This 68-nucleotide RNA sequence from Lynx pardinus belongs to the Rfam family "mir-290 microRNA precursor family".

[Rfam]
RNA sequence: GUGGUACUCAAAUGUGGAAGCACUCUUCAGACAAAUCAGUGAAAAGUGCUACUAUAUUUGGGUGUCAC
Numbered sequence: 001g002u003g004g005u006a007c008u009c010a011a012a013u014g015u016g017g018a019a020g021c022a023c024u025c026u027u028c029a030g031a032c033a034a035a036u037c038a039g040u041g042a043a044a045a046g047u048g049c050u051a052c053u054a055u056a057u058u059u060g061g062g063u064g065u066c067a068c
Stems, first nucleotide, its partner, number of pairs: 004065009014055004019050006026043003
The base pairs follow the family's consensus structure, which was predicted with RNAalifold. Lineage of the source: Eukaryota > Craniata > Felidae > Felinae > Lynx. A search with the family's covariance model found it, with a score of 59 bits. Its Rfam clan is "mir-290 clan". Rfam 15.1 lists 565 matches to the family in 128 species.